The record is a 150-nucleotide RNA sequence from Pseudomonas paraeruginosa, which matches "radC RNA" in Rfam. The organism belongs to Pseudomonas paraeruginosa, within Bacteria. The base pairs follow the family's consensus structure, which is taken from published work. It is annotated as a cis-regulatory element.
[Rfam]
RNA sequence: UUCUUUGCACCGUGAGCUGCUGACGUUGUCGGCAAUCCUCCCCCAGUAGUCAUGAUCUGAAAGACUACGACACGGAUUUCCGUGUAGAUCGAACCCAAGAUCGCACCAGCUUCCGGUAGCGCGAUCAAUCAACCACAGGUUGAUGGAAGC
Numbered sequence: 001u002u003c004u005u006u007g008c009a010c011c012g013u014g015a016g017c018u019g020c021u022g023a024c025g026u027u028g029u030c031g032g033c034a035a036u037c038c039u040c041c042c043c044c045a046g047u048a049g050u051c052a053u054g055a056u057c058u059g060a061a062a063g064a065c066u067a068c069g070a071c072a073c074g075g076a077u078u079u080c081c082g083u084g085u086a087g088a089u090c091g092a093a094c095c096c097a098a099g100a101u102c103g104c105a106c107c108a109g110c111u112u113c114c115g116g117u118a119g120c121g122c123g124a125u126c127a128a129u130c131a132a133c134c135a136c137a138g139g140u141u142g143a144u145g146g147a148a149g150c
Base pairs, nucleotide, nucleotide: 012039014037019033020032021031022030023029024028046068047067048066049065050064051063054090055089056088057087070085071084072083073082074081075080121150122149128144129143130142131141132140133139134138